[Rfam]
RNA sequence: CGAGCACCUCGCUAGGUGAGGCGUCUGCGCGGAUACAGGCCACUGACCCCUAACGUCGAAAGACGCCCCGGGUCAGGACAGCUCCUCCCGGCCUAAGGGUCGAGCCCAAGUGGCUUCCGGAACACCGGAUACGACGUGCAGUGCCAAAGCUCUGACGAGAGAGGUGCGCA
Numbered sequence: 001c002g003a004g005c006a007c008c009u010c011g012c013u014a015g016g017u018g019a020g021g022c023g024u025c026u027g028c029g030c031g032g033a034u035a036c037a038g039g040c041c042a043c044u045g046a047c048c049c050c051u052a053a054c055g056u057c058g059a060a061a062g063a064c065g066c067c068c069c070g071g072g073u074c075a076g077g078a079c080a081g082c083u084c085c086u087c088c089c090g091g092c093c094u095a096a097g098g099g100u101c102g103a104g105c106c107c108a109a110g111u112g113g114c115u116u117c118c119g120g121a122a123c124a125c126c127g128g129a130u131a132c133g134a135c136g137u138g139c140a141g142u143g144c145c146a147a148a149g150c151u152c153u154g155a156c157g158a159g160a161g162a163g164g165u166g167c168g169c170a
Stems, first nucleotide, its partner, number of pairs: 005166006011156001013096001015151003020145003025141007039114005045074005054065004081105004087099003116129003

Rfam assigns this 170-nucleotide RNA from Mycobacterium botniense to the family "M-box riboswitch aptamer (ykoK leader)". For this family Rfam cites "Magnesium-sensing riboswitches in bacteria" (Ramesh and Winkler, RNA Biol, 2010). Rfam describes the family as follows. M-box riboswitch, also know as ykoK leader is described as a metaloregulatory RNA that sense divalent metals and function as a genetic control element of genes related to divalent metal transport in bacteria. It was first reported upstream of the B.subtilis ykoK gene and genes with related functions in other bacteria. Lineage of the source: Bacteria > Actinomycetota > Mycobacteriales > Mycobacteriaceae > Mycobacterium. The base pairs follow the family's consensus structure.